[Rfam]
RNA sequence: UUUCCGAAACGAAAUUGGUUUUCUCAAAGAUCUGACAGAGAUUUAAUCCAUCUGAGAUCAUUGUGAAAGCUGAUUUCGUCCA
Dot-bracket structure: ........((((((.((((((((.(...(((((.....................)))))...).)))))))).))))))...